This 174-nucleotide sequence from Mizuhopecten yessoensis belongs to the Rfam family "U2 spliceosomal RNA". Rfam classes the family as a spliceosomal small nuclear RNA. Taxonomically the source falls in Mizuhopecten (Eukaryota, Metazoa, Mollusca, Pteriomorphia). The base pairs follow the family's consensus structure, which is taken from published work. For this family Rfam cites "The uRNA database" (Zwieb, Nucleic Acids Res, 1997). U2 is a small nuclear RNA (snRNA) component of the spliceosome (involved in pre-mRNA splicing).
RNA sequence: AUCGCUUCUCGGCCUUUUGGCUAAGAUCAAAGUGUGAUAUCUGUUUUUAUCAGCUUGAUAUCUGAUACGUACCCCACUGGAGUACUUCGAUAUAAAACUGAUUUUUGGACUUAGGUCUGCUCUUGCCACGGGUUGUCCCGGUAUUGCUGUACCUCUCGGAACGGCCCACUCACC
Numbered sequence: 001a002u003c004g005c006u007u008c009u010c011g012g013c014c015u016u017u018u019g020g021c022u023a024a025g026a027u028c029a030a031a032g033u034g035u036g037a038u039a040u041c042u043g044u045u046u047u048u049a050u051c052a053g054c055u056u057g058a059u060a061u062c063u064g065a066u067a068c069g070u071a072c073c074c075c076a077c078u079g080g081a082g083u084a085c086u087u088c089g090a091u092a093u094a095a096a097a098c099u100g101a102u103u104u105u106u107g108g109a110c111u112u113a114g115g116u117c118u119g120c121u122c123u124u125g126c127c128a129c130g131g132g133u134u135g136u137c138c139c140g141g142u143a144u145u146g147c148u149g150u151a152c153c154u155c156u157c158g159g160a161a162c163g164g165c166c167c168a169c170u171c172a173c174c
Stems, first nucleotide, its partner, number of pairs: 007026003011022004048067006069085004074080002114127003130167006137159002140156002